A member of the RNA family "Purine riboswitch aptamer" from Bacillus sp. FJAT-27986, 105 nucleotides long. Riboswitches are metabolite binding domains within certain messenger RNAs that serve as precision sensors for their corresponding targets. The family's consensus secondary structure is taken from published work.
[Rfam]
RNA sequence: ACUAAAUUAUAAAAAUAAACUCGUAUAAUCUUGGAAAUAUGGUCCAAGAGUUUCUACAAACUAACCACUUUAAUUAGUUCGUCUACGGGAAUAGAUACGUACAGA
Numbered sequence: 001a002c003u004a005a006a007u008u009a010u011a012a013a014a015a016u017a018a019a020c021u022c023g024u025a026u027a028a029u030c031u032u033g034g035a036a037a038u039a040u041g042g043u044c045c046a047a048g049a050g051u052u053u054c055u056a057c058a059a060a061c062u063a064a065c066c067a068c069u070u071u072a073a074u075u076a077g078u079u080c081g082u083c084u085a086c087g088g089g090a091a092u093a094g095a096u097a098c099g100u101a102c103a104g105a
Stems, first nucleotide, its partner, number of pairs: 020089006029049007059079006
Dot-bracket structure: ...................((((((...(((((((.......))))))).........((((((.........))))))....))))))................